[Rfam]
Rfam assigns this 99-nucleotide RNA sequence from Proteus mirabilis to the family "Gammaprotebacteria rimP leader". The source organism's lineage runs through Bacteria, Pseudomonadati, Pseudomonadota, Morganellaceae and Proteus. Pairs were carried over by alignment from the consensus structure, which is taken from published work. The literature on the family includes a 2010 paper in Genome Biol by Naville and Gautheret, "Premature terminator analysis sheds light on a hidden world of bacterial transcriptional attenuation". The family's RNA type in Rfam is cis-regulatory leader.

RNA sequence: UCUCGAUUGGCAAGUUACAGGGUCCAGUUGCAUAAAGCCCCGAAUUUCGGGGUUUUUUGUUAUCAGAGAAUAGAAUACUGGGCUAUAAGCCCUUUUUUU
Numbered sequence: 001u002c003u004c005g006a007u008u009g010g011c012a013a014g015u016u017a018c019a020g021g022g023u024c025c026a027g028u029u030g031c032a033u034a035a036a037g038c039c040c041c042g043a044a045u046u047u048c049g050g051g052g053u054u055u056u057u058u059g060u061u062a063u064c065a066g067a068g069a070a071u072a073g074a075a076u077a078c079u080g081g082g083c084u085a086u087a088a089g090c091c092c093u094u095u096u097u098u099u
Base pairs, nucleotide, nucleotide: 034056035055036054037053038052039051040050041049042048080092081091082090083089